[Rfam]
RNA sequence: CCCUUUUCAGUAUGCAAGUGUGUUCCUUUAUUUUAACGCUAAAGGUGGAUGCUCUAGUUGAAACACUUCACAAAUGUUGUUGUUAAAAAUAUUGUAGUAUUCUUACCUUUAGCGUCAAGACACAAACACACUCGCCCACUAAAAAGGA
Dot-bracket structure: .((((((.((...((.((((((((..(.(..(((.(((((((((((((((((..(((.(..(((((..((....))..).))))....)..)))..))))))..))))))))))).)))).)..)))))))).))...)).)))))).